RNA sequence: AAAAACGCCCAUUAAUACAGUGGUUCCCCAUCCGGGUGCUACUUUACCAUAUUCUGAAUUU
Numbered sequence: 001a002a003a004a005a006c007g008c009c010c011a012u013u014a015a016u017a018c019a020g021u022g023g024u025u026c027c028c029c030a031u032c033c034g035g036g037u038g039c040u041a042c043u044u045u046a047c048c049a050u051a052u053u054c055u056g057a058a059u060u061u
Base pairs, nucleotide, nucleotide: 017045019043020042021041022040023039024038026036027035
Rfam assigns this 61-nucleotide sequence from Castanea mollissima to the family "Plastid-psbN 5UTR RNA". The organism belongs to Castanea, within Eukaryota. The family has 63 seed sequences and 2,345 matches in Rfam 15.1. The family's RNA type in Rfam is cis-regulatory element.